The family of this 250-nucleotide RNA from Effusibacillus lacus is "BsrG". Rfam 15.1 lists 614 matches to the family in 343 species. From the family's description: bsrE, bsrG and bsrH pair through intermolecular interactions with antisense sRNAs. The match comes from Rfam's covariance-model search (126 bits). The source organism's lineage runs through Bacteria, Bacillati, Bacilli, Caryophanales and Effusibacillus. Gene Ontology terms of the family: toxin activity and autolysis.
[Rfam]
RNA sequence: UACAAUAGAAUAGGCUCCUCAAGGGUGGUCGGCUCAUCCCCUAAGGAAAGGGGGUGAUGCCAUGACAGUUUAUGAGGCGAUCUCACUGAUGAUUUCUUUCGGUGCGCUGGUCGCGUUAAUACUGUCGGGAAAGAAAAAAAGAUAGACCGCCCUUGAGCUGACAACUCCGGCGGUCUACUGCGGAAAACAUUGAGCCGACCCCAAGAGGGGCAGCUAUUGUACCUCGACCGUAGGUGUUCCAGCACCUGCG
Numbered sequence: 001u002a003c004a005a006u007a008g009a010a011u012a013g014g015c016u017c018c019u020c021a022a023g024g025g026u027g028g029u030c031g032g033c034u035c036a037u038c039c040c041c042u043a044a045g046g047a048a049a050g051g052g053g054g055u056g057a058u059g060c061c062a063u064g065a066c067a068g069u070u071u072a073u074g075a076g077g078c079g080a081u082c083u084c085a086c087u088g089a090u091g092a093u094u095u096c097u098u099u100c101g102g103u104g105c106g107c108u109g110g111u112c113g114c115g116u117u118a119a120u121a122c123u124g125u126c127g128g129g130a131a132a133g134a135a136a137a138a139a140a141g142a143u144a145g146a147c148c149g150c151c152c153u154u155g156a157g158c159u160g161a162c163a164a165c166u167c168c169g170g171c172g173g174u175c176u177a178c179u180g181c182g183g184a185a186a187a188c189a190u191u192g193a194g195c196c197g198a199c200c201c202c203a204a205g206a207g208g209g210g211c212a213g214c215u216a217u218u219g220u221a222c223c224u225c226g227a228c229c230g231u232a233g234g235u236g237u238u239c240c241a242g243c244a245c246c247u248g249c250g
Base pairs, nucleotide, nucleotide: 001221002220003219004218005217007215008214011212013196014195015194016193017192018157019156020155021154022153023152024151025150027147029145034057035056036055038053039052040051041050042049064126065125066124067123068122069121078091079090102117167183168182169181199210200209201208229250230249231248232247233246234245235244236243237242